[Rfam]
RNA sequence: AAAAUUUAAAAAUGGCAGAGUUACAAAAAAUAUUUUUAAAUUUUAUUUAUUUGAUUUUAGGUUUUGGGAAAUUUGAAAUAGAAAUGGUGGCCCCGAAUGGACUCGAACCAUCGACCACUACCA
Dot-bracket structure: ........................((...(.((......)).)...))......((...)).......................((((((...((.((((.......)))))).))))))...
About this RNA
A member of the RNA family "Bacterial antisense RNA HPnc0260" from Campylobacter concisus, 123 nucleotides long. The base pairs follow the family's consensus structure, which was predicted with CMfinder. It is one of the family's seed sequences. Lineage of the source: Bacteria > Campylobacterota > Campylobacterales > Campylobacter > Campylobacter concisus. For this family Rfam cites "The primary transcriptome of the major human pathogen Helicobacter pylori" (Sharma et al., Nature, 2010).